[Rfam]
RNA sequence: AAAUUAGGUAGAGGCUGAGAACCCGUCCUGAAGAUACGGGCACCUGGGACGGAGGGAGCUAUUGGUGCGACCGGCUACGGAGAUC
Numbered sequence: 001a002a003a004u005u006a007g008g009u010a011g012a013g014g015c016u017g018a019g020a021a022c023c024c025g026u027c028c029u030g031a032a033g034a035u036a037c038g039g040g041c042a043c044c045u046g047g048g049a050c051g052g053a054g055g056g057a058g059c060u061a062u063u064g065g066u067g068c069g070a071c072c073g074g075c076u077a078c079g080g081a082g083a084u085c
Stems, first nucleotide, its partner, number of pairs: 002084001004082002008078004013060003022054001023052006038072002040068005
Notes:
The record is an 85-nucleotide RNA, which matches "c-di-GMP-II-GAG riboswitch aptamer" in Rfam. Its Rfam clan is "c-di-GMP_II riboswitch clan". For this family Rfam cites "Bioinformatic analysis of riboswitch structures uncovers variant classes with altered ligand specificity" (Weinberg et al., Proc Natl Acad Sci U S A, 2017).